[Rfam]
RNA sequence: UGAUUGUCCAAACGCAAUUCUUGUAACAUAUAAUAUAAAUCCAAGAAUUGUGCCUGGACAUCUGU
Numbered sequence: 001u002g003a004u005u006g007u008c009c010a011a012a013c014g015c016a017a018u019u020c021u022u023g024u025a026a027c028a029u030a031u032a033a034u035a036u037a038a039a040u041c042c043a044a045g046a047a048u049u050g051u052g053c054c055u056g057g058a059c060a061u062c063u064g065u
Stems, first nucleotide, its partner, number of pairs: 002062003006059005013052011
Rfam assigns this 65-nucleotide sequence from Ictalurus punctatus to the family "mir-219 microRNA precursor family". Pairs were carried over by alignment from the consensus structure, which was predicted with RNAalifold. The literature on the family includes a 2003 paper in Science by Lim et al., "Vertebrate microRNA genes". Gene Ontology terms of the family: miRNA-mediated post-transcriptional gene silencing and RISC complex. Rfam 15.1 lists 1,318 matches to the family in 774 species.